[Rfam]
RNA sequence: UUCUACCGUUUCAGUUUGUCAAUUGGACUUAAAGUUUUAUUGAUCCUUCAGGUGGGGCAAAGGAAAUAUCUUUUUAAAACCUAGACAAACUGAGUGUUUUCUCUUGUAAUCUGUCAGGAGACAGACUG
Numbered sequence: 001u002u003c004u005a006c007c008g009u010u011u012c013a014g015u016u017u018g019u020c021a022a023u024u025g026g027a028c029u030u031a032a033a034g035u036u037u038u039a040u041u042g043a044u045c046c047u048u049c050a051g052g053u054g055g056g057g058c059a060a061a062g063g064a065a066a067u068a069u070c071u072u073u074u075u076a077a078a079a080c081c082u083a084g085a086c087a088a089a090c091u092g093a094g095u096g097u098u099u100u101c102u103c104u105u106g107u108a109a110u111c112u113g114u115c116a117g118g119a120g121a122c123a124g125a126c127u128g
Stems, first nucleotide, its partner, number of pairs: 034058004040051004069121006082106001083104003087099004
This 128-nucleotide sequence from Chinchilla lanigera belongs to the Rfam family "Small nucleolar RNA SNORA27". Rfam describes the family as follows. ACA27 is a member of the H/ACA class of snoRNA that guide the sites of modification of uridines to pseudouridines. The organism belongs to Chinchilla, within Eukaryota.